RNA sequence: UGGAGAGGUAGAGGUGCGGUCGAUCAAGAGUAUUUCUGUGGAGCCGGGCGAAGGGCUGUGAAGCAGAAAAAAAGGGAUCAUCGCCGAAGUGGCUUGGUUUCGUCCUACCUUGCUGCUGGGUCUGGGCAAAAGAUGUUCAGAUCUGUCACAGAGAGGAUUCUCCCUGUGGAGUGCUACUUAUGUU
Dot-bracket structure: .....((((((....(((((.((((.......(((((((.......................)))))))......)))))))))...((((((..(((........)))..))))))(((((((((((.....))))))))))).((((((............))))))....)))))).....
This 184-nucleotide RNA from Heliophilum fasciatum belongs to the Rfam family "Lysine riboswitch aptamer".